[Rfam]
RNA sequence: UACUCAUUAAGAGUUGCAGAGGAAGCUAGCCGAGGAAGCAACAGCAACCUAUUAAAUUAGGUGCUACUAGUAGGGGUAAUAUUACCUAUCAAUGAGAA
Numbered sequence: 001u002a003c004u005c006a007u008u009a010a011g012a013g014u015u016g017c018a019g020a021g022g023a024a025g026c027u028a029g030c031c032g033a034g035g036a037a038g039c040a041a042c043a044g045c046a047a048c049c050u051a052u053u054a055a056a057u058u059a060g061g062u063g064c065u066a067c068u069a070g071u072a073g074g075g076g077u078a079a080u081a082u083u084a085c086c087u088a089u090c091a092a093u094g095a096g097a098a
Base pairs, nucleotide, nucleotide: 001098003096004095005094006093007092008091013042014041015040016039017038021031022030043065044064045063046062048061049060051057052056074087075086076085077084078083

The record is a 98-nucleotide RNA from a Mycoplasmatota bacterium, which matches "SAM riboswitch aptamer (S box leader)" in Rfam. The source organism's lineage runs through Bacteria, Bacillati and Mycoplasmatota. The SAM riboswitch is found upstream of a number of genes which code for proteins involved in methionine or cysteine biosynthesis in Gram-positive bacteria. The SAM riboswitch acts at the level of transcription termination control. The predicted structure consists of a complex stem-loop region followed by a single stem loop terminator region. The base pairs follow the family's consensus structure, which is taken from published work.